[Rfam]
RNA sequence: UAUCUUUGCGGCUUGAAAGAACGUCUUUCAUAUACAUAAAAAUCAUUUAAAUAAUAUUAGCAUG
Numbered sequence: 001u002a003u004c005u006u007u008g009c010g011g012c013u014u015g016a017a018a019g020a021a022c023g024u025c026u027u028u029c030a031u032a033u034a035c036a037u038a039a040a041a042a043u044c045a046u047u048u049a050a051a052u053a054a055u056a057u058u059a060g061c062a063u064g
Base pairs, nucleotide, nucleotide: 014030015029016028017027018026019025

The record is a 64-nucleotide RNA from Neotamlana nanhaiensis, which matches "S15-Flavobacteria ribosomal protein leader" in Rfam. Taxonomically the source falls in Neotamlana (Bacteria, Pseudomonadati, Flavobacteriia, Flavobacteriaceae). Rfam's curators put it in the seed alignment. By type it is a cis-regulatory leader. On this family, see Eckert and Weinberg, BMC Microbiol 2020: "Discovery of 20 novel ribosomal leader candidates in bacteria and archaea".